[Rfam]
RNA sequence: GGCUUGGCGCCAUGUCCGUCGGCGAUGCCGACAACAUGCCCAGGUAGCCAAGACCUUCAAGGCUAUGACGCGUUGCGACGCGCAGGUCGUUCUUCUUCGCCAAGCCGUUCGCGGCGUUUUCUUCCACCCAUUGGGGCAGUCACAGCCCCGGCGGGC
Numbered sequence: 001g002g003c004u005u006g007g008c009g010c011c012a013u014g015u016c017c018g019u020c021g022g023c024g025a026u027g028c029c030g031a032c033a034a035c036a037u038g039c040c041c042a043g044g045u046a047g048c049c050a051a052g053a054c055c056u057u058c059a060a061g062g063c064u065a066u067g068a069c070g071c072g073u074u075g076c077g078a079c080g081c082g083c084a085g086g087u088c089g090u091u092c093u094u095c096u097u098c099g100c101c102a103a104g105c106c107g108u109u110c111g112c113g114g115c116g117u118u119u120u121c122u123u124c125c126a127c128c129c130a131u132u133g134g135g136g137c138a139g140u141c142a143c144a145g146c147c148c149c150g151g152c153g154g155g156c
Base pairs, nucleotide, nucleotide: 011038012037013036014035015033018032019031020030021029022028023027044066045065046064047063048062049061052088053087054086055085069082070081071080072079073078124155125154131151132150133149134148135147136146137145
RNA: radC RNA
Organism: Parasulfuritortus cantonensis